Notes: Rfam assigns this 57-nucleotide sequence from Prochlorococcus marinus to the family "Glutamine-II riboswitch aptamer". A reference for the family is Huang et al. (2019), "Structure and ligand binding of the glutamine-II riboswitch", Nucleic Acids Res. The match comes from Rfam's covariance-model search (35 bits). Lineage of the source: Bacteria > Cyanobacteriota > Prochlorococcaceae > Prochlorococcus > Prochlorococcus marinus.

[Rfam]
RNA sequence: AUACGUUCGUUUUCCUUAGGGAAAUGCAUAUUAGGGCAACAGGGAACGGGGUUGCCU
Numbered sequence: 001a002u003a004c005g006u007u008c009g010u011u012u013u014c015c016u017u018a019g020g021g022a023a024a025u026g027c028a029u030a031u032u033a034g035g036g037c038a039a040c041a042g043g044g045a046a047c048g049g050g051g052u053u054g055c056c057u
Stems, first nucleotide, its partner, number of pairs: 004048005010024005034057007